[Rfam]
RNA: Guanidine-I riboswitch aptamer
RNA sequence: GACAAAGCUGUCUAGGGUUCCGUUGGUCGAUUAGUUGACUGAGUCUGGUCCAAGAGACGGCGUAUGGUAGGAAGCUGUUGCCGCUGAGCAUACUCGCUUCACGAGCCAUAUGACACGGAAGGAUAAAAGCCUGGGAGAU
Numbered sequence: 001g002a003c004a005a006a007g008c009u010g011u012c013u014a015g016g017g018u019u020c021c022g023u024u025g026g027u028c029g030a031u032u033a034g035u036u037g038a039c040u041g042a043g044u045c046u047g048g049u050c051c052a053a054g055a056g057a058c059g060g061c062g063u064a065u066g067g068u069a070g071g072a073a074g075c076u077g078u079u080g081c082c083g084c085u086g087a088g089c090a091u092a093c094u095c096g097c098u099u100c101a102c103g104a105g106c107c108a109u110a111u112g113a114c115a116c117g118g119a120a121g122g123a124u125a126a127a128a129g130c131c132u133g134g135g136a137g138a139u
Base pairs, nucleotide, nucleotide: 007061008060009059010058011057012056015051016050020048021047022045023042024041025040026039027038028037067106068105114134116137120132121131122130